A member of the RNA family "narK RNA" from Pseudomonas sp. PAMC 25886, 71 nucleotides long. The family's consensus secondary structure is taken from published work.

RNA sequence: GGCCCACCUCUUGCUAAAGAAUCCCCACAGGUAGCCAACGGCGGUUGCCCCAUCCACGACAAAGACGUCGC
Numbered sequence: 001g002g003c004c005c006a007c008c009u010c011u012u013g014c015u016a017a018a019g020a021a022u023c024c025c026c027a028c029a030g031g032u033a034g035c036c037a038a039c040g041g042c043g044g045u046u047g048c049c050c051c052a053u054c055c056a057c058g059a060c061a062a063a064g065a066c067g068u069c070g071c
Base pairs, nucleotide, nucleotide: 030049031048032047033046034045035044036043